[Rfam]
RNA sequence: CCGCGACUAUAACGUGGAAGCAUUUGCUGUGACACGACAGCAGUAAGUGCUUCCAUGUUUUAGUGUGG
Numbered sequence: 001c002c003g004c005g006a007c008u009a010u011a012a013c014g015u016g017g018a019a020g021c022a023u024u025u026g027c028u029g030u031g032a033c034a035c036g037a038c039a040g041c042a043g044u045a046a047g048u049g050c051u052u053c054c055a056u057g058u059u060u061u062a063g064u065g066u067g068g
Base pairs, nucleotide, nucleotide: 001068002067006064007063008062011059012058013057014056015055016054017053018052019051020050021049022048023047024046025045026044027043028042